RNA sequence: AAAGUCCACACCGGGGAAAGGCCUAACCAGCCACCCGUAUCGAGUGUUGCGCCGGUAUUGGUAACAAUGCCGGUGAAGUGUACACAGAGAACGGCGCAGACCGUAGGAAGGACCGUAACUUCCGAAGCAAUUCAGCCUCGUAACGCAAGAUUUAUUGCAGGCGGCGACAUGGUCAUAAACAUGGAAGCCACAAUGAGAGAAAUCGCAAAUGGUGAGAUUUCUGGAAGCCUGCCGGGGUCAAAGAGCA
Numbered sequence: 001a002a003a004g005u006c007c008a009c010a011c012c013g014g015g016g017a018a019a020g021g022c023c024u025a026a027c028c029a030g031c032c033a034c035c036c037g038u039a040u041c042g043a044g045u046g047u048u049g050c051g052c053c054g055g056u057a058u059u060g061g062u063a064a065c066a067a068u069g070c071c072g073g074u075g076a077a078g079u080g081u082a083c084a085c086a087g088a089g090a091a092c093g094g095c096g097c098a099g100a101c102c103g104u105a106g107g108a109a110g111g112a113c114c115g116u117a118a119c120u121u122c123c124g125a126a127g128c129a130a131u132u133c134a135g136c137c138u139c140g141u142a143a144c145g146c147a148a149g150a151u152u153u154a155u156u157g158c159a160g161g162c163g164g165c166g167a168c169a170u171g172g173u174c175a176u177a178a179a180c181a182u183g184g185a186a187g188c189c190a191c192a193a194u195g196a197g198a199g200a201a202a203u204c205g206c207a208a209a210u211g212g213u214g215a216g217a218u219u220u221c222u223g224g225a226a227g228c229c230u231g232c233c234g235g236g237g238u239c240a241a242a243g244a245g246c247a
Base pairs, nucleotide, nucleotide: 014036015035016034020032021031022030024215026213027212040088041087044085045084046083047082048080049079050075051074052073053072054071055070056069057068058067059066060065132241135238136237137236138235139234140233157232158231159230160229161228162227163189164188165187168183169182170181171180194226198222199221200220201219202218203217204216
The family of this 247-nucleotide sequence from Sporomusa silvacetica is "Group II catalytic intron D1-D4-6". Pairs were carried over by alignment from the consensus structure. The source organism's lineage runs through Bacteria, Bacillati, Negativicutes, Sporomusaceae and Sporomusa silvacetica. About the family: Group II introns are found in rRNA, tRNA and mRNA of organelles in fungi, plants and protists, and also in mRNA in bacteria. Its family is annotated with Group II intron splicing in the Gene Ontology. The match comes from Rfam's covariance-model search (145 bits).